RNA: L31-Actinobacteria ribosomal protein leader
RNA sequence: UCGGUUCCGGUUCACGUUCGGCGAAAUAUGCGAACGACCCGGCGACC
Numbered sequence: 001u002c003g004g005u006u007c008c009g010g011u012u013c014a015c016g017u018u019c020g021g022c023g024a025a026a027u028a029u030g031c032g033a034a035c036g037a038c039c040c041g042g043c044g045a046c047c
Base pairs, nucleotide, nucleotide: 003047004046005045007042008041009040010039015036016035017034018033019032020031022030023029